[Rfam]
RNA sequence: AAGCAACACUCUGAGGCAGAUACUAAUUGUUUGUCUCAAUUUGGGCUUGCUAGAUUAGAAAAGUCUAAUCUAUUCCAGUAUUCUCUGUGCUAUGGGAACAACUGUUAUAUUGACUUGAACAAA
Dot-bracket structure: ........(((((((.((((((.....)))))).))))....)))...............(((((.(...(((..((((....(((........)))...))))..)))).))))).......
A member of the RNA family "Small nucleolar RNA SNORA28" from Microcaecilia unicolor, 123 nucleotides long.
The literature on the family includes a 2001 paper in EMBO J by Huttenhofer et al., "RNomics: an experimental approach that identifies 201 candidates for novel, small, non-messenger RNAs in mouse".
The base pairs follow the family's consensus structure, which was predicted with RNAfold.
Rfam links the family to the GO terms RNA processing and nucleolus.
By type it is an H/ACA-box small nucleolar RNA.
From the family's description: ACA28 is a member of the H/ACA class of snoRNA that guide the sites of modification of uridines to pseudouridines.